[Rfam]
RNA: TPP riboswitch aptamer (THI element)
Organism: Sneathiella litorea
RNA sequence: GCCUUCCUCGGGGGGAGCCAGUCCGGCUGAGAGGUUCCGUUAAACGGGACGACCCCGAUUACCUGAUCAGGCUAAUACCUGCGUAGGAACGAGAUAUUAAUGGAAC
Numbered sequence: 001g002c003c004u005u006c007c008u009c010g011g012g013g014g015g016a017g018c019c020a021g022u023c024c025g026g027c028u029g030a031g032a033g034g035u036u037c038c039g040u041u042a043a044a045c046g047g048g049a050c051g052a053c054c055c056c057g058a059u060u061a062c063c064u065g066a067u068c069a070g071g072c073u074a075a076u077a078c079c080u081g082c083g084u085a086g087g088a089a090c091g092a093g094a095u096a097u098u099a100a101u102g103g104a105a106c
Base pairs, nucleotide, nucleotide: 007093008092009091010090011056012055013054014053017027018026019025034050035049036048037047038046039045040044062087063086064085065084068081069080070079071078